[Rfam]
RNA sequence: AAACUGAUAUCAUGAGCAACUCGUAUAAAGCCGGGGAUAUGGCCCGGAAGUCUCUACCCGGGAACCGUAAAUUACCGGACUACGAGGAACAGAUAGAUAGUA
Numbered sequence: 001a002a003a004c005u006g007a008u009a010u011c012a013u014g015a016g017c018a019a020c021u022c023g024u025a026u027a028a029a030g031c032c033g034g035g036g037a038u039a040u041g042g043c044c045c046g047g048a049a050g051u052c053u054c055u056a057c058c059c060g061g062g063a064a065c066c067g068u069a070a071a072u073u074a075c076c077g078g079a080c081u082a083c084g085a086g087g088a089a090c091a092g093a094u095a096g097a098u099a100g101u102a
Stems, first nucleotide, its partner, number of pairs: 020086006031047005058078004063073002
RNA: Purine riboswitch aptamer
Organism: Paenibacillus albidus